RNA sequence: UGUAUCAAUGAUGAUGAUUUGGCUCCCUCUACUGAAAUCUGUGAGGAAGAAUGCCAUCGUUACCCAAUUUCAUCUGAGAUACA
Numbered sequence: 001u002g003u004a005u006c007a008a009u010g011a012u013g014a015u016g017a018u019u020u021g022g023c024u025c026c027c028u029c030u031a032c033u034g035a036a037a038u039c040u041g042u043g044a045g046g047a048a049g050a051a052u053g054c055c056a057u058c059g060u061u062a063c064c065c066a067a068u069u070u071c072a073u074c075u076g077a078g079a080u081a082c083a
Base pairs, nucleotide, nucleotide: 001083002082003081004080005079006078